The family of this 88-nucleotide sequence from Scyliorhinus torazame is "Selenocysteine transfer RNA". Lineage of the source: Eukaryota > Opisthokonta > Bilateria > Chondrichthyes > Scyliorhinus. Its Rfam clan is "tRNA clan".

RNA sequence: AUCCAAGUAUGGCCCUCAGUGUUCUGGGGUGCAGGCUUCAAACCUGUAGUGGUCGAGGGACAGAGUGGUUCAUUUCCACCUUUUGGAU
Numbered sequence: 001a002u003c004c005a006a007g008u009a010u011g012g013c014c015c016u017c018a019g020u021g022u023u024c025u026g027g028g029g030u031g032c033a034g035g036c037u038u039c040a041a042a043c044c045u046g047u048a049g050u051g052g053u054c055g056a057g058g059g060a061c062a063g064a065g066u067g068g069u070u071c072a073u074u075u076c077c078a079c080c081u082u083u084u085g086g087a088u
Stems, first nucleotide, its partner, number of pairs: 001088006009082001011080001014029006030048006050063001052061003065079004